[Rfam]
Source information
Rfam assigns this 129-nucleotide RNA sequence from Proteus myxofaciens to the family "Histidine operon leader". Taxonomically the source falls in Proteus myxofaciens (Bacteria, Pseudomonadota, Gammaproteobacteria, Morganellaceae). By type it is a cis-regulatory leader. Rfam describes the family as follows. At least 6 amino acid operons are known to be regulated by attenuation. In each a leader sequence of 150-200 bp is found upstream of the first gene in the operon. This leader sequence can assume two different secondary structures known as the terminator and the anti-terminator structure. Its family is annotated with histidine biosynthetic process in the Gene Ontology.

RNA sequence: CCAUCAUCACCAUCAUCCUGACUAGUCUUUCAGGCGAUGAGUGCUGGAAGACGUUUAAGCAACGCUUCCGGUGGUCUGAAUGCAAAUGACUUAUAAAACCCGGAAGGUAACUUCCGGGUUUUUUUAUAA
Number, nucleotide and partner (000 for none) at each position: 001c000002c000003a000004u000005c000006a000007u000008c043009a042010c041011c039012a038013u037014c036015a000016u000017c034018c033019u032020g031021a030022c000023u000024a000025g000026u000027c000028u000029u000030u021031c020032a019033g018034g017035c000036g014037a013038u012039g011040a000041g010042u009043g008044c071045u070046g069047g068048a067049a066050g065051a000052c000053g000054u000055u000056u000057a000058a000059g000060c000061a000062a000063c000064g000065c050066u049067u048068c047069c046070g045071g044072u000073g000074g000075u000076c000077u000078g000079a000080a000081u000082g000083c000084a000085a000086a000087u000088g000089a000090c000091u126092u000093a124094u000095a122096a121097a120098a119099c118100c117101c116102g115103g114104a113105a112106g111107g000108u000109a000110a000111c106112u105113u104114c103115c102116g101117g100118g099119u098120u097121u096122u095123u000124u093125u000126a091127u000128a000129a000